[Rfam]
RNA sequence: UGCUCAUCGAGAGGGACUGAGGGAACGGCCCUGCGAAGUCCCGGCAACCGGCUGCAACAUCCAGGCAACUGACCGGUGCCAAUUCCGGCCCGCGGCGAGAGUCGUCACGGGGAAGAUGAGGG
Numbered sequence: 001u002g003c004u005c006a007u008c009g010a011g012a013g014g015g016a017c018u019g020a021g022g023g024a025a026c027g028g029c030c031c032u033g034c035g036a037a038g039u040c041c042c043g044g045c046a047a048c049c050g051g052c053u054g055c056a057a058c059a060u061c062c063a064g065g066c067a068a069c070u071g072a073c074c075g076g077u078g079c080c081a082a083u084u085c086c087g088g089c090c091c092g093c094g095g096c097g098a099g100a101g102u103c104g105u106c107a108c109g110g111g112g113a114a115g116a117u118g119a120g121g122g
Base pairs, nucleotide, nucleotide: 001122003120004119005118006117007116008115013042014041015040016039017038021031022030023029026087027086028085043080044079045078046077048076049075050073052071084114089111090110091109092108094106095105096104097103